[Rfam]
RNA sequence: GCCCGGUUAGCUCAGUCGGUAGAGCGUGUGACUCUUACAAUCGGUGGAGGUUGUUAUCUCAAAGUCAGGGGUUCGAGCCCCCUACCGGGCU
Numbered sequence: 001g002c003c004c005g006g007u008u009a010g011c012u013c014a015g016u017c018g019g020u021a022g023a024g025c026g027u028g029u030g031a032c033u034c035u036u037a038c039a040a041u042c043g044g045u046g047g048a049g050g051u052u053g054u055u056a057u058c059u060c061a062a063a064g065u066c067a068g069g070g071g072u073u074c075g076a077g078c079c080c081c082c083u084a085c086c087g088g089g090c091u
Stems, first nucleotide, its partner, number of pairs: 001090007010025004027061002030058002067083005
Dot-bracket structure: (((((((..((((........)))).((.((.........................)).)).....(((((.......)))))))))))).
A member of the RNA family "tRNA" from Ophiocordyceps camponoti-floridani, 91 nucleotides long. The family's RNA type in Rfam is transfer RNA. From the family's description: Transfer RNA (tRNA) molecules are approximately 80 nucleotides in length. NCBI's taxonomy places the organism under Eukaryota, Ascomycota, Hypocreales, Ophiocordycipitaceae, Ophiocordyceps.